[Rfam]
RNA sequence: CUCUUAUCCAGAGUUCGGCGGAGGGACUGGCCCUAUGAAGCCGCGGCAACCGACUUUACUUUCAAGCACGGUGCAAAUUCCUGCGAAGGGUAACCUUCGAAAGAUGAGAG
Numbered sequence: 001c002u003c004u005u006a007u008c009c010a011g012a013g014u015u016c017g018g019c020g021g022a023g024g025g026a027c028u029g030g031c032c033c034u035a036u037g038a039a040g041c042c043g044c045g046g047c048a049a050c051c052g053a054c055u056u057u058a059c060u061u062u063c064a065a066g067c068a069c070g071g072u073g074c075a076a077a078u079u080c081c082u083g084c085g086a087a088g089g090g091u092a093a094c095c096u097u098c099g100a101a102a103g104a105u106g107a108g109a110g
Base pairs, nucleotide, nucleotide: 001110002109003108004107005106006105007104008103013044016043017042018041019040023033024032025031027083029081030080046074047073048072050071051070054066055065056064079102084099085098086097087096088095089094

The record is a 110-nucleotide sequence from Paenibacillus hemerocallicola, which matches "SAM riboswitch aptamer (S box leader)" in Rfam.
A search with the family's covariance model found it, with a score of 89 bits.
About the family: The SAM riboswitch is found upstream of a number of genes which code for proteins involved in methionine or cysteine biosynthesis in Gram-positive bacteria. The SAM riboswitch acts at the level of transcription termination control.
The family's consensus secondary structure is taken from published work.
Gene Ontology term of the family: regulation of gene expression.
Rfam 15.1 lists 9,625 matches to the family in 4,158 species.
Taxonomically the source falls in Paenibacillus (Bacteria, Bacillati, Bacilli, Paenibacillaceae).